RNA sequence: GCCCCAAGUCGCACGUGCCUGUGGGCGUCCCCCGGUCCUCGAAUGCGAGGGUUGCCGGGACGGUACCUGGAUCUGACGAUCCAGUCGGUUUCGCUGCUGGCGAAAUCGUGGACGCCUUGAAGCAACGACGGUCCGGGCCUUU
Number, nucleotide and partner (000 for none) at each position: 001g138002c137003c136004c135005c000006a000007a000008g129009u128010c127011g126012c000013a000014c000015g000016u124017g123018c122019c000020u000021g000022u000023g117024g116025g115026c114027g113028u112029c111030c110031c059032c058033c057034g056035g055036u000037c050038c049039u048040c047041g046042a000043a000044u000045g000046c041047g040048a039049g038050g037051g000052u000053u000054g000055c035056c034057g033058g032059g031060a000061c000062g000063g000064u000065a000066c000067c084068u083069g082070g081071a080072u000073c000074u000075g000076a000077c000078g000079a000080u071081c070082c069083a068084g067085u000086c108087g107088g106089u000090u000091u103092c102093g101094c100095u099096g000097c000098u000099g095100g094101c093102g092103a091104a000105a000106u088107c087108g086109u000110g030111g029112a028113c027114g026115c025116c024117u023118u000119g000120a000121a000122g018123c017124a016125a000126c011127g010128a009129c008130g000131g000132u000133c000134c000135g004136g003137g002138c001139c000140u000141u000142u000
Alphaproteobacterial sRNA ar45: a 142-nucleotide RNA from Aurantimonas coralicida. The base pairs follow the family's consensus structure. It is one of the family's seed sequences. For this family Rfam cites "A survey of sRNA families in alpha-proteobacteria" (del Val et al., RNA Biol, 2012).